Rfam assigns this 202-nucleotide sequence from Paenibacillus sp. UNC496MF to the family "c-di-AMP riboswitch aptamer (ydaO/yuaA leader)". Lineage of the source: Bacteria > Bacillati > Bacillota > Caryophanales > Paenibacillus.
RNA sequence: CUAUUACGCGAGCCGAAACGAUAACUCGUACGGGGGAUCUUUUGGGAGCAAGUCACGUUGCUCCGUUCCCGUCAUCUGAUGCGUAUCACAUGACGGGUUCACCGCGCUUUUGGCGCUGGGGUGAAUCGCGCGUUCCGCGCGUAGGGUCGAACUCCUCGACCCGAAUCCGACAACUAACCUCGUAGGCCGCAUGCGAAGAUGG
Numbered sequence: 001c002u003a004u005u006a007c008g009c010g011a012g013c014c015g016a017a018a019c020g021a022u023a024a025c026u027c028g029u030a031c032g033g034g035g036g037a038u039c040u041u042u043u044g045g046g047a048g049c050a051a052g053u054c055a056c057g058u059u060g061c062u063c064c065g066u067u068c069c070c071g072u073c074a075u076c077u078g079a080u081g082c083g084u085a086u087c088a089c090a091u092g093a094c095g096g097g098u099u100c101a102c103c104g105c106g107c108u109u110u111u112g113g114c115g116c117u118g119g120g121g122u123g124a125a126u127c128g129c130g131c132g133u134u135c136c137g138c139g140c141g142u143a144g145g146g147u148c149g150a151a152c153u154c155c156u157c158g159a160c161c162c163g164a165a166u167c168c169g170a171c172a173a174c175u176a177a178c179c180u181c182g183u184a185g186g187c188c189g190c191a192u193g194c195g196a197a198g199a200u201g202g
Stems, first nucleotide, its partner, number of pairs: 012187003018029003030183006040118001119168003127141004144162004